The family of this 317-nucleotide RNA from Adineta ricciae is "Nuclear RNase P".
Rfam links the family to the GO terms ribonuclease P activity, tRNA processing and ribonuclease P complex.
It scores 148 bits against the family's covariance model.
About the family: Ribonuclease P (RNase P) is a ubiquitous endoribonuclease, found in archaea, bacteria and eukarya as well as chloroplasts and mitochondria. Its best characterised activity is the generation of mature 5'-ends of tRNAs by cleaving the 5'-leader elements of precursor-tRNAs. Cellular RNase Ps are ribonucleoproteins. RNA from bacterial RNase Ps retains its catalytic activity in the absence of the protein subunit, i.e. it is a ribozyme.
The literature on the family includes a 2002 paper in Annu Rev Biochem by Xiao et al., "Eukaryotic Ribonuclease P: A Plurality of Ribonucleoprotein Enzymes".
Taxonomically the source falls in Adineta (Eukaryota, Protostomia, Spiralia, Rotifera).
RNA sequence: GUAGGUAGAAGCUUACUCACAGGGAUUACAAACGAGUGCACUGUCGCUCUUCCGUCUUUAUCCUUGGGAAGGUCUGAGAUAGAGGCCAAUCGAGACUCUAGCAGGGUUCCGUGCGGGUUAACGCAUGGCAGGUGAUCAGAAAGCUUCCGGCGUGAAGUGUCUUUCUCAAUGGUAAUAAUCGAGUACAAGACCAACAUUCGUUGGGAUGCUCUUAUCAUUGGGAAAGUUGUGAAAGCCUGUGGCCAGCAACAUGAAGUUCAAUGAGUGAGAUGAUCAUUUCGGUGAUCAGAACUCAAUUCAGACUACUCUCUACCGAC
Dot-bracket structure: ((.(..(((..(((((((..(((((........(((((......)))))...........)))))........[[[[[.....((((......(((((.....))))).((((((......))))))((((((..........(((.............................................................................)))........))))))))))..................))))))).((((((......))))))........]]]]].......)))..).))